[Rfam]
Rfam assigns this 168-nucleotide RNA from Novipirellula herctigrandis to the family "Group II catalytic intron D1-D4-3". Pairs were carried over by alignment from the consensus structure.
RNA sequence: CCGUGGGUGACUGCGUGUCUAAAGGAAGCGAUAGGGGGACGAUGGAACGUAGCGUGAGCGAACCCGAUUCGGCUGGUUGCUCGGACGAGCCUGCAAAAAGUGGCGAUGUCCGAUUUAUGAACAUGAGCAGCAAGUGCUUGGGGACGUCAUCAUCGUCAGGGAGCCAGC
Numbered sequence: 001c002c003g004u005g006g007g008u009g010a011c012u013g014c015g016u017g018u019c020u021a022a023a024g025g026a027a028g029c030g031a032u033a034g035g036g037g038g039a040c041g042a043u044g045g046a047a048c049g050u051a052g053c054g055u056g057a058g059c060g061a062a063c064c065c066g067a068u069u070c071g072g073c074u075g076g077u078u079g080c081u082c083g084g085a086c087g088a089g090c091c092u093g094c095a096a097a098a099a100g101u102g103g104c105g106a107u108g109u110c111c112g113a114u115u116u117a118u119g120a121a122c123a124u125g126a127g128c129a130g131c132a133a134g135u136g137c138u139u140g141g142g143g144a145c146g147u148c149a150u151c152a153u154c155g156u157c158a159g160g161g162a163g164c165c166a167g168c
Base pairs, nucleotide, nucleotide: 002015003014004013005012006011028168029167040155041154042153043152044151045150047147048146049145050144063143064142065141067139072135073134074133076131077130078129079128080127081126082125083111084110085109086108089104090103091102